Shown here is a 70-nucleotide RNA sequence from Pseudomonas fluorescens, a member of the family "narK RNA". Rfam classes the family as a cis-regulatory element. The base pairs follow the family's consensus structure, which is taken from published work. NCBI's taxonomy places the organism under Bacteria, Gammaproteobacteria, Pseudomonadales, Pseudomonadaceae, Pseudomonas fluorescens. It is one of the family's seed sequences.
RNA sequence: GGCGCAGCUCUUGCUAAGUAAACAUCACAGGUAGCCAACGGCGGUUGCCCCUCCACGACAAAGACGUCGC
Dot-bracket structure: .............................(((((((......))))))).....................